[Rfam]
RNA sequence: AUAUACACUGAGUGGCCAGAUUAUUAUACAUUCAGAUUCAGAGAUUAUAAUAAUCUGGCCACUCAGUGUAUAU
Number, nucleotide and partner (000 for none) at each position: 001a000002u000003a000004u070005a069006c068007a067008c066009u065010g064011a063012g062013u061014g060015g059016c058017c057018a000019g055020a054021u053022u052023a051024u050025u049026a048027u047028a046029c000030a000031u000032u000033c000034a000035g000036a000037u000038u000039c000040a000041g000042a000043g000044a000045u000046u028047a027048u026049a025050a024051u023052a022053a021054u020055c019056u000057g017058g016059c015060c014061a013062c012063u011064c010065a009066g008067u007068g006069u005070a004071u000072a000073u000
The record is a 73-nucleotide RNA from Pipistrellus kuhlii, which matches "mir-9256 microRNA precursor family" in Rfam. Gene Ontology terms of the family: miRNA-mediated post-transcriptional gene silencing and RISC complex. Taxonomically the source falls in Pipistrellus (Eukaryota, Euteleostomi, Sarcopterygii, Boreoeutheria).